[Rfam]
RNA sequence: UCGACUGUUCUCAUCAGGAUUAUGUUUACAGUUAAUUUACAGUUCUUUGUUCAUCGAACAUAGACAUUGGAACCAUGCUGGAAGAUGACCGACAGUGCGCCGUCCGUAAAGGGAGGUGUGGGUCCAGCGCUCAUUCGUGACGCUGCUGCUUUUUUCGACCCGUCGAUGAUCUUGCCUGCUCUGCGCCCCCUCGCUCGCUUUCUGCGGGCGUGGGUUUAAGAGUGCGAGCGGCGAGGAUGGACGCACAUUCUGACAGCUC
Numbered sequence: 001u002c003g004a005c006u007g008u009u010c011u012c013a014u015c016a017g018g019a020u021u022a023u024g025u026u027u028a029c030a031g032u033u034a035a036u037u038u039a040c041a042g043u044u045c046u047u048u049g050u051u052c053a054u055c056g057a058a059c060a061u062a063g064a065c066a067u068u069g070g071a072a073c074c075a076u077g078c079u080g081g082a083a084g085a086u087g088a089c090c091g092a093c094a095g096u097g098c099g100c101c102g103u104c105c106g107u108a109a110a111g112g113g114a115g116g117u118g119u120g121g122g123u124c125c126a127g128c129g130c131u132c133a134u135u136c137g138u139g140a141c142g143c144u145g146c147u148g149c150u151u152u153u154u155u156c157g158a159c160c161c162g163u164c165g166a167u168g169a170u171c172u173u174g175c176c177u178g179c180u181c182u183g184c185g186c187c188c189c190c191u192c193g194c195u196c197g198c199u200u201u202c203u204g205c206g207g208g209c210g211u212g213g214g215u216u217u218a219a220g221a222g223u224g225c226g227a228g229c230g231g232c233g234a235g236g237a238u239g240g241a242c243g244c245a246c247a248u249u250c251u252g253a254c255a256g257c258u259c
Stems, first nucleotide, its partner, number of pairs: 003038001006034001010031002016026002019023001044064003048060005077257004095246005100240006110173004120161005176231004181226001

This 259-nucleotide RNA from Linderina pennispora belongs to the Rfam family "ACEA small nucleolar RNA U3".
Its Rfam clan is "U3 clan".
The literature on the family includes a 1997 paper in Nucleic Acids Res by Zwieb, "The uRNA database".
It scores 60 bits against the family's covariance model.